About this RNA:
Shown here is a 173-nucleotide RNA from Natranaerobius trueperi, a member of the family "Group II catalytic intron D1-D4-3". It scores 148 bits against the family's covariance model. Group II introns are found in rRNA, tRNA and mRNA of organelles in fungi, plants and protists, and also in mRNA in bacteria. Lineage of the source: Bacteria > Bacillati > Natranaerobiales > Natranaerobiaceae > Natranaerobius.

RNA sequence: UCCAUCGCGAGGUGGAGUCUGAAGGAAGCCUAAUGCAAACUCUUGGUCUGACGAAUAGAAACCACAUACAAGGCAUACGUGGGGUGGAUGAGUGUGCAUAUCAACACAAAGUCCAAUACCACCCGAACCCCACGGUGUAAAUGUGGCAGAUGUAUGAGAGGAAAGGUACCGUU
Numbered sequence: 001u002c003c004a005u006c007g008c009g010a011g012g013u014g015g016a017g018u019c020u021g022a023a024g025g026a027a028g029c030c031u032a033a034u035g036c037a038a039a040c041u042c043u044u045g046g047u048c049u050g051a052c053g054a055a056u057a058g059a060a061a062c063c064a065c066a067u068a069c070a071a072g073g074c075a076u077a078c079g080u081g082g083g084g085u086g087g088a089u090g091a092g093u094g095u096g097c098a099u100a101u102c103a104a105c106a107c108a109a110a111g112u113c114c115a116a117u118a119c120c121a122c123c124c125g126a127a128c129c130c131c132a133c134g135g136u137g138u139a140a141a142u143g144u145g146g147c148a149g150a151u152g153u154a155u156g157a158g159a160g161g162a163a164a165g166g167u168a169c170c171g172u173u
Stems, first nucleotide, its partner, number of pairs: 001016006028173001030171001036165001040160006046151005062146006073138003078134007086114004092107004
Dot-bracket structure: ((((((....))))))...........(.(.....(...(((((((((((...........((((((.....(((..(((((((.((((..((((........))))...)))).............))))))).)))..)))))))))))...))))))....).....).)